[Rfam]
RNA sequence: UCUGGAGGAUUGUCGAGACUGAGUCUGGAGAGUGAGACUUGGGUGACAGUGGCCUCCUAAAAGAAAAGGGAUGGAGAGAGCAGUCCUACUUCCAGAAAGCACGGGGCUCACUGUGCCAUCUGACACUG
Numbered sequence: 001u002c003u004g005g006a007g008g009a010u011u012g013u014c015g016a017g018a019c020u021g022a023g024u025c026u027g028g029a030g031a032g033u034g035a036g037a038c039u040u041g042g043g044u045g046a047c048a049g050u051g052g053c054c055u056c057c058u059a060a061a062a063g064a065a066a067a068g069g070g071a072u073g074g075a076g077a078g079a080g081c082a083g084u085c086c087u088a089c090u091u092c093c094a095g096a097a098a099g100c101a102c103g104g105g106g107c108u109c110a111c112u113g114u115g116c117c118a119u120c121u122g123a124c125a126c127u128g
Base pairs, nucleotide, nucleotide: 003059004057005056006055007054008053017044019042021040022039023038024037025036026035068121069120070119079112080111082108083107084106085105086104087103091101093099

About this RNA
This 128-nucleotide RNA sequence from Regulus satrapa belongs to the Rfam family "Small Cajal body specific RNA 4". The family has 24 seed sequences and 634 matches in Rfam 15.1. Gene Ontology terms of the family: Cajal body, nucleolus and RNA processing. scaRNAs are a specific class of small nuclear RNAs which localise to the Cajal bodies and guide the modification of RNA polymerase II transcribed spliceosomal RNAs U1, U2, U4, U5 and U12. ACA26 belongs to the H/ACA box class of guide RNAs as it has the predicted hairpin-hinge-hairpin-tail structure, conserved H/ACA-box motifs and is found associated with GAR1. Its Rfam clan is "SCARNA4 clan". Taxonomically the source falls in Regulus (Eukaryota, Gnathostomata, Euteleostomi, Dinosauria).